[Rfam]
RNA sequence: CCGAAGCGGUGAUGAUGUUGACAUUAAUGUCACUUCCCUGAGAACCACUGAUGUUUUUAAGUCACUACCUCAUCUGAGCUUGU
Numbered sequence: 001c002c003g004a005a006g007c008g009g010u011g012a013u014g015a016u017g018u019u020g021a022c023a024u025u026a027a028u029g030u031c032a033c034u035u036c037c038c039u040g041a042g043a044a045c046c047a048c049u050g051a052u053g054u055u056u057u058u059a060a061g062u063c064a065c066u067a068c069c070u071c072a073u074c075u076g077a078g079c080u081u082g083u
Stems, first nucleotide, its partner, number of pairs: 002082002005080003
Source information
Shown here is an 83-nucleotide RNA sequence from Mola mola, a member of the family "Small nucleolar RNA SNORD11B". Lineage of the source: Eukaryota > Actinopterygii > Neopterygii > Osteoglossocephalai > Mola. The family has 37 seed sequences and 733 matches in Rfam 15.1. Rfam classes the family as a C/D-box small nucleolar RNA. A search with the family's covariance model found it, with a score of 56 bits.